[Rfam]
RNA: ZMP/ZTP riboswitch aptamer (pfl RNA motif)
RNA sequence: UGACCCCCACACGACUGGCGCAGGUGGGUGACCACCAGGGAGUGAAGCCGUGGAGCAUCGAACGCCUGGGUGCUCCCC
Numbered sequence: 001u002g003a004c005c006c007c008c009a010c011a012c013g014a015c016u017g018g019c020g021c022a023g024g025u026g027g028g029u030g031a032c033c034a035c036c037a038g039g040g041a042g043u044g045a046a047g048c049c050g051u052g053g054a055g056c057a058u059c060g061a062a063c064g065c066c067u068g069g070g071u072g073c074u075c076c077c078c
Stems, first nucleotide, its partner, number of pairs: 003051002007047001010044003015039002017066004024035004055073005